Shown here is a 113-nucleotide RNA from Vibrio paucivorans, a member of the family "RT-12 RNA". Taxonomically the source falls in Vibrio (Bacteria, Pseudomonadati, Pseudomonadota, Vibrionales). The base pairs follow the family's consensus structure, which is taken from published work. It is annotated as a small RNA.
[Rfam]
RNA sequence: UAAUAGAUCGCGGCGUGCGCCUUUCGAGGCCAGAUGAUUGGUUAGGCCAGUUAGUUAAAGCCCAAGAGGACACACGGAAAGGCCGCAUGUCCACUCCUCUUGGGUUUUGCUAG
Numbered sequence: 001u002a003a004u005a006g007a008u009c010g011c012g013g014c015g016u017g018c019g020c021c022u023u024u025c026g027a028g029g030c031c032a033g034a035u036g037a038u039u040g041g042u043u044a045g046g047c048c049a050g051u052u053a054g055u056u057a058a059a060g061c062c063c064a065a066g067a068g069g070a071c072a073c074a075c076g077g078a079a080a081g082g083c084c085g086c087a088u089g090u091c092c093a094c095u096c097c098u099c100u101u102g103g104g105u106u107u108u109g110c111u112a113g
Stems, first nucleotide, its partner, number of pairs: 010086005019030004038050004051113005057107001061104010076092003080088001